[Rfam]
RNA: ALIL pseudoknot
RNA sequence: CGCGUUUUUCGCAGCAGCGGAGCUCGACCGCAAACUCGGGCAGUGAUCGCGUAUAUUCGUGAGUAUCGGGACCGGUUCGGGGGCGAGCCGAUCUGCGCUGUGCUGUGUGCGCAUGGCACCCAGAUCGACCCG
Numbered sequence: 001c002g003c004g005u006u007u008u009u010c011g012c013a014g015c016a017g018c019g020g021a022g023c024u025c026g027a028c029c030g031c032a033a034a035c036u037c038g039g040g041c042a043g044u045g046a047u048c049g050c051g052u053a054u055a056u057u058c059g060u061g062a063g064u065a066u067c068g069g070g071a072c073c074g075g076u077u078c079g080g081g082g083g084c085g086a087g088c089c090g091a092u093c094u095g096c097g098c099u100g101u102g103c104u105g106u107g108u109g110c111g112c113a114u115g116g117c118a119c120c121c122a123g124a125u126c127g128a129c130c131c132g
Stems, first nucleotide, its partner, number of pairs: 017031004078132004089127002092124004